RNA sequence: CCCGAAAGACCUCCCAUUUCACCCGACGGCAGGAGCGGGGGACCCACCACACCGCCGGUCCGGUCGUCCGGAACGGCUCGGGGUGAAGCCGCGUGCGCGCGGCCGGACAGCUCCAGUCCGAACCCGACAGCUCACCUCGCAGGCGCCGGAGAGGAAACCG
Numbered sequence: 001c002c003c004g005a006a007a008g009a010c011c012u013c014c015c016a017u018u019u020c021a022c023c024c025g026a027c028g029g030c031a032g033g034a035g036c037g038g039g040g041g042a043c044c045c046a047c048c049a050c051a052c053c054g055c056c057g058g059u060c061c062g063g064u065c066g067u068c069c070g071g072a073a074c075g076g077c078u079c080g081g082g083g084u085g086a087a088g089c090c091g092c093g094u095g096c097g098c099g100c101g102g103c104c105g106g107a108c109a110g111c112u113c114c115a116g117u118c119c120g121a122a123c124c125c126g127a128c129a130g131c132u133c134a135c136c137u138c139g140c141a142g143g144c145g146c147c148g149g150a151g152a153g154g155a156a157a158c159c160g
Base pairs, nucleotide, nucleotide: 001033002032035140036139037138038137039136040135045080081125082124083123089102090101091100092099105119106118107117108116
Overview:
The family of this 160-nucleotide RNA from Streptomyces sp. R302 is "c-di-AMP riboswitch aptamer (ydaO/yuaA leader)". It scores 56 bits against the family's covariance model. Rfam links the family to the GO terms regulation of gene expression and cyclic-di-AMP binding. Rfam 15.1 lists 7,607 matches to the family in 2,262 species.